Rfam assigns this 156-nucleotide sequence from Streptomyces fulvorobeus to the family "c-di-AMP riboswitch aptamer (ydaO/yuaA leader)". NCBI's taxonomy places the organism under Bacteria, Bacillati, Kitasatosporales, Streptomycetaceae, Streptomyces.

Nucleotides: 156
Base pairs, nucleotide, nucleotide: 003028004027005026029138030137031136032135033134034133039077078123079122080121086100087099088098089097103117104116105115106114
Number, partner (000 for none) and nucleotide at each position: 001000a002000a003028u004027c005026c006000g007000c008000a009000u010000c011000c012000a013000c014000u015000c016000a017000c018000g019000u020000g021000u022000g023000g024000c025000a026005g027004g028003a029138g030137c031136g032135g033134g034133g035000g036000a037000c038000c039077c040000a041000g042000g043000u044000a045000a046000g047000c048000c049000g050000c051000c052000g053000g054000u055000c056000c057000g058000g059000a060000g061000g062000a063000a064000u065000c066000c067000g068000g069000c070000c071000c072000g073000g074000c075000u076000c077039g078123g079122g080121g081000u082000g083000a084000a085000g086100u087099c088098g089097c090000a091000c092000c093000a094000g095000a096000c097089g098088c099087g100086a101000c102000c103117g104116g105115g106114c107000a108000u109000c110000u111000c112000c113000a114106g115105c116104c117103c118000g119000a120000a121080c122079c123078c124000g125000a126000c127000a128000g129000c130000u131000c132000a133034c134033c135032u136031c137030g138029u139000a140000g141000g142000c143000g144000c145000c146000g147000g148000a149000g150000a151000g152000g153000a154000a155000u156000u